[Rfam]
RNA: Pseudoknot of influenza A virus gene
RNA sequence: UGCCAGGACAUUCUGGAGAGGAUGUCAAAAAUGCAAUUGGAAUCCUCA
Numbered sequence: 001u002g003c004c005a006g007g008a009c010a011u012u013c014u015g016g017a018g019a020g021g022a023u024g025u026c027a028a029a030a031a032u033g034c035a036a037u038u039g040g041a042a043u044c045c046u047c048a
Stems, first nucleotide, its partner, number of pairs: 003040004018047006